[Rfam]
RNA sequence: UGACCAGGGGGCCGGGCCGUUCUGACUGUUGCAGGGUCGGAGUGGCCUAGGGGUACAGGGAGUGCCUCCAUCAUGGGCCGGGUCAGGAGAGGG
Numbered sequence: 001u002g003a004c005c006a007g008g009g010g011g012c013c014g015g016g017c018c019g020u021u022c023u024g025a026c027u028g029u030u031g032c033a034g035g036g037u038c039g040g041a042g043u044g045g046c047c048u049a050g051g052g053g054u055a056c057a058g059g060g061a062g063u064g065c066c067u068c069c070a071u072c073a074u075g076g077g078c079c080g081g082g083u084c085a086g087g088a089g090a091g092g093g
Stems, first nucleotide, its partner, number of pairs: 001085005010079004014048005020042008050068007